[Rfam]
RNA sequence: AGUUAUACAUUCAAGGCCACAGUAGAAGCACUCACAGCGUGGCCUGUCAGAUUCCAAAUUAAAUCUGUGAAUUAUGCU
Number, nucleotide and partner (000 for none) at each position: 001a000002g000003u000004u000005a000006u000007a000008c000009a000010u000011u000012c000013a000014a000015g044016g043017c042018c041019a000020c000021a078022g077023u076024a075025g000026a073027a072028g040029c039030a000031c000032u000033c000034a000035c000036a000037g000038c000039g029040u028041g018042g017043c016044c015045u000046g000047u000048c067049a066050g065051a064052u063053u062054c000055c000056a000057a000058a000059u000060u000061a000062a053063a052064u051065c050066u049067g048068u000069g000070a000071a000072u027073u026074a000075u024076g023077c022078u021
A member of the RNA family "Mammalian CPEB3 ribozyme" from Crocodylus porosus, 78 nucleotides long. The organism belongs to Crocodylus, within Eukaryota. Its family is annotated with RNA nuclease activity in the Gene Ontology. The base pairs follow the family's consensus structure, which is taken from published work.